This 127-nucleotide sequence from Myotis davidii belongs to the Rfam family "mir-9193 microRNA precursor family".
Nucleotides: 127
Base pairs, nucleotide, nucleotide: 003125004124006122008120009119010118012116013115014114015113016112017111018110019109020108021107023105024104025103027101028100029099030098031097032096033095034094
Number, partner (000 for none) and nucleotide at each position: 001000c002000a003125u004124g005000g006122a007000u008120u009119g010118g011000u012116g013115g014114g015113g016112u017111c018110c019109c020108u021107c022000a023105g024104c025103c026000u027101g028100g029099c030098c031097u032096g033095u034094g035000c036000c037000c038000u039000c040000u041000c042000a043000c044000a045000a046000c047000c048000c049000a050000g051000g052000a053000c054000c055000c056000c057000u058000c059000a060000g061000g062000g063000g064000a065000u066000g067000u068000u069000g070000g071000a072000c073000u074000g075000c076000u077000g078000g079000u080000u081000u082000c083000u084000g085000c086000c087000c088000a089000a090000u091000c092000c093000c094034u095033g096032c097031a098030g099029g100028c101027c102000a103025g104024g105023c106000c107021g108020a109019g110018g111017g112016a113015c114014c115013c116012c117000a118010c119009u120008g121000u122006u123000g124004c125003a126000c127000g